[Rfam]
Nucleotides: 273
Base pairs, nucleotide, nucleotide: 002273003272004271005270006269007268008267009266011264014238015237016236017235019233022062023061024060025059026058027057028056036050037049038048039047040046066259067258068257070256071255072254073253082094083093084092085091095110096109097108098107099106113211114210115209116208117207118206119205120204121203128201129200130199131198184194187191
Number, partner (000 for none) and nucleotide at each position: 001000g002273g003272u004271g005270g006269c007268g008267g009266u010000a011264u012000g013000u014238u015237u016236c017235a018000a019233u020000g021000c022062u023061c024060g025059g026058a027057a028056u029000c030000a031000c032000g033000a034000a035000a036050c037049g038048g039047c040046c041000u042000u043000a044000g045000c046040g047039g048038c049037u050036g051000u052000g053000c054000a055000a056028a057027u058026u059025c060024u061023g062022a063000g064000g065000a066259a067258a068257g069000u070256c071255c072254c073253u074000g075000g076000a077000c078000c079000u080000g081000c082094g083093g084092c085091u086000g087000a088000g089000a090000g091085a092084g093083u094082c095110c096109g097108c098107g099106c100000c101000c102000g103000g104000a105000g106099g107098c108097g109096c110095g111000c112000a113211g114210u115209c116208g117207a118206a119205u120204g121203c122000a123000c124000a125000a126000a127000u128201c129200u130199c131198u132000u133000u134000a135000u136000g137000a138000g139000u140000c141000c142000c143000u144000g145000g146000g147000u148000g149000g150000c151000c152000a153000u154000a155000a156000g157000a158000g159000c160000c161000a162000u163000g164000a165000c166000c167000c168000c169000g170000c171000a172000a173000g174000a175000g176000u177000g178000a179000g180000c181000u182000c183000g184194g185000u186000c187191g188000c189000c190000u191187u192000u193000u194184c195000g196000g197000a198131a199130g200129g201128g202000a203121g204120c205119a206118u207117u208116c209115g210114a211113u212000u213000u214000u215000c216000g217000u218000c219000a220000a221000c222000g223000u224000c225000a226000a227000a228000g229000u230000a231000a232000u233019g234000c235017u236016g237015a238014a239000a240000g241000a242000u243000a244000a245000a246000a247000c248000a249000g250000a251000a252000u253073a254072g255071g256070g257068c258067u259066u260000a261000a262000u263000c264011a265000g266009a267008c268007u269006g270005u271004c272003a273002c
A member of the RNA family "RNase MRP" from Meloidogyne javanica, 273 nucleotides long. From the family's description: RNase MRP is an enzymatically active ribonucleoprotein with two distinct roles in eukaryotes. The family's consensus secondary structure is taken from published work.